Record summary
A member of the RNA family "Nitrogen stress-induced RNA 1" from Vacuolonema iberomarrocanum, 60 nucleotides long. NCBI's taxonomy places the organism under Bacteria, Bacillati, Cyanophyceae, Oculatellales, Vacuolonema iberomarrocanum. The match comes from Rfam's covariance-model search (51 bits).
RNA sequence: UGGUAGAUGCACCCUGAUUCUUAACUCCCUACGCCUCCUAGAGGCUUCGGGAGUUUUUUU
Numbered sequence: 001u002g003g004u005a006g007a008u009g010c011a012c013c014c015u016g017a018u019u020c021u022u023a024a025c026u027c028c029c030u031a032c033g034c035c036u037c038c039u040a041g042a043g044g045c046u047u048c049g050g051g052a053g054u055u056u057u058u059u060u
Base pairs, nucleotide, nucleotide: 002013003012004011026052027051028050029049031047033045034044035043036042
Dot-bracket structure: .(((......)))............((((.(.((((.....)))).).))))........